[Rfam]
RNA sequence: AAAAACUUUAUCCGUAUGAGGUAUACGACCAAGACACGGGUUCGACUCCCGUCAGCUCCACAAACUCAUAAUAAUAAGGGGCUGUAUGGUUUUGAUUGGCGUGGAAGUAAAUAUACCUAUUAAGUUAGGAAGGAUACUGUAUAAAUUCAAAUGGCAACUUUAAUGUUGUUGACUAUACUUGCGUAGCGUAA
Numbered sequence: 001a002a003a004a005a006c007u008u009u010a011u012c013c014g015u016a017u018g019a020g021g022u023a024u025a026c027g028a029c030c031a032a033g034a035c036a037c038g039g040g041u042u043c044g045a046c047u048c049c050c051g052u053c054a055g056c057u058c059c060a061c062a063a064a065c066u067c068a069u070a071a072u073a074a075u076a077a078g079g080g081g082c083u084g085u086a087u088g089g090u091u092u093u094g095a096u097u098g099g100c101g102u103g104g105a106a107g108u109a110a111a112u113a114u115a116c117c118u119a120u121u122a123a124g125u126u127a128g129g130a131a132g133g134a135u136a137c138u139g140u141a142u143a144a145a146u147u148c149a150a151a152u153g154g155c156a157a158c159u160u161u162a163a164u165g166u167u168g169u170u171g172a173c174u175a176u177a178c179u180u181g182c183g184u185a186g187c188g189u190a191a
Stems, first nucleotide, its partner, number of pairs: 002121002005118001014112002017109001026101002030098003036052005053084007123138003
This 191-nucleotide RNA belongs to the Rfam family "permuted transfer-messenger RNA". The family's consensus secondary structure is taken from published work.